A member of the RNA family "Archaeal large subunit ribosomal RNA" from Methanobacterium sp. A39, 357 nucleotides of a longer RNA. A search with the family's covariance model found it, with a score of 2889 bits. The organism belongs to Methanobacterium, within Archaea.
[Rfam]
RNA sequence: UAGGGUAAACCAGCUAAGGGAAAUCGGCAAAAUAGCCCCGUAACUUUGGGAUAAGGGGUGCCAGCUGUGUAGACAGCUGGUCGCAGUGACUAGGGGGGCCCGACUGUUUAAUAAAAACAUAGCUCCUAGCUAGCCCGUAAGGGUGUGUACUGGGGGCGACACCUGCCCAGUGCCGGCACGUGAAGCCGGGGUUCAACCUGGUGAAGCGCCGGUAAACGGCGGGGGUAACUAUAACCCUCUUAAGGUAGCGAAAUGCCUUGCCGGAUAAGUACCGGCCUGCAUGAAUGGUAGAACGAGGUCCCUACUGUCCCUAGCUGGAACCUAGUGAACCUGCAUAAGUGGUGCACAUGCCACUGA
Numbered sequence: 001u002a003g004g005g006u007a008a009a010c011c012a013g014c015u016a017a018g019g020g021a022a023a024u025c026g027g028c029a030a031a032a033u034a035g036c037c038c039c040g041u042a043a044c045u046u047u048g049g050g051a052u053a054a055g056g057g058g059u060g061c062c063a064g065c066u067g068u069g070u071a072g073a074c075a076g077c078u079g080g081u082c083g084c085a086g087u088g089a090c091u092a093g094g095g096g097g098g099c100c101c102g103a104c105u106g107u108u109u110a111a112u113a114a115a116a117a118c119a120u121a122g123c124u125c126c127u128a129g130c131u132a133g134c135c136c137g138u139a140a141g142g143g144u145g146u147g148u149a150c151u152g153g154g155g156g157c158g159a160c161a162c163c164u165g166c167c168c169a170g171u172g173c174c175g176g177c178a179c180g181u182g183a184a185g186c187c188g189g190g191g192u193u194c195a196a197c198c199u200g201g202u203g204a205a206g207c208g209c210c211g212g213u214a215a216a217c218g219g220c221g222g223g224g225g226u227a228a229c230u231a232u233a234a235c236c237c238u239c240u241u242a243a244g245g246u247a248g249c250g251a252a253a254u255g256c257c258u259u260g261c262c263g264g265a266u267a268a269g270u271a272c273c274g275g276c277c278u279g280c281a282u283g284a285a286u287g288g289u290a291g292a293a294c295g296a297g298g299u300c301c302c303u304a305c306u307g308u309c310c311c312u313a314g315c316u317g318g319a320a321c322c323u324a325g326u327g328a329a330c331c332u333g334c335a336u337a338a339g340u341g342g343u344g345c346a347c348a349u350g351c352c353a354c355u356g357a
Stems, first nucleotide, its partner, number of pairs: 001324004010318007018310003035059005044049001060081009082086001094303007101295002105119003122157008130147001133144004161289003165220003170217002172213005179208003186201005221239006240244001260276005338355005